[Rfam]
RNA sequence: AUCUUUAUGCAGGGGCAUUACGUGUUUCAGUGAGGAUUCGUCCGAGAUCAUGUUUUUGCUGGUUGAAAACUAUACCUGACAACUCUUUGGAGGACGGGCUUGCCUGUUUGCCAAAGGAAUUUUUGGAUCACACAAUG
Numbered sequence: 001a002u003c004u005u006u007a008u009g010c011a012g013g014g015g016c017a018u019u020a021c022g023u024g025u026u027u028c029a030g031u032g033a034g035g036a037u038u039c040g041u042c043c044g045a046g047a048u049c050a051u052g053u054u055u056u057u058g059c060u061g062g063u064u065g066a067a068a069a070c071u072a073u074a075c076c077u078g079a080c081a082a083c084u085c086u087u088u089g090g091a092g093g094a095c096g097g098g099c100u101u102g103c104c105u106g107u108u109u110g111c112c113a114a115a116g117g118a119a120u121u122u123u124u125g126g127a128u129c130a131c132a133c134a135a136u137g
Base pairs, nucleotide, nucleotide: 020053021052022051023050024049027047028046034043035042036041085117086116087115088113089112090111092109093108094107095106096105097104

Rfam assigns this 137-nucleotide RNA sequence from Sungouiella intermedia to the family "U4 spliceosomal RNA".
The family's RNA type in Rfam is spliceosomal small nuclear RNA.
It scores 100 bits against the family's covariance model.
U4 small nuclear RNA (U4 snRNA) is a component of the major U2-dependent spliceosome.